[Rfam]
A member of the RNA family "Mammalian CPEB3 ribozyme" from Alligator mississippiensis, 75 nucleotides long. About the family: The mammalian CPEB3 ribozyme is a self cleaving RNA located in the second intron of the CPEB3 gene which belongs to a family of genes regulating messenger RNA polyadenylation. NCBI's taxonomy places the organism under Eukaryota, Gnathostomata, Sauropsida, Crocodylia, Alligator.

RNA sequence: UCACAAGUUCAUGGCCAUAGUAGAAGCGCUCACGAUGUAGCCCGGUCAGAGUCCAAUGAAUCUGCAAGUACUACU
Numbered sequence: 001u002c003a004c005a006a007g008u009u010c011a012u013g014g015c016c017a018u019a020g021u022a023g024a025a026g027c028g029c030u031c032a033c034g035a036u037g038u039a040g041c042c043c044g045g046u047c048a049g050a051g052u053c054c055a056a057u058g059a060a061u062c063u064g065c066a067a068g069u070a071c072u073a074c075u
Stems, first nucleotide, its partner, number of pairs: 013042003019075005025069001026038003047064004052059002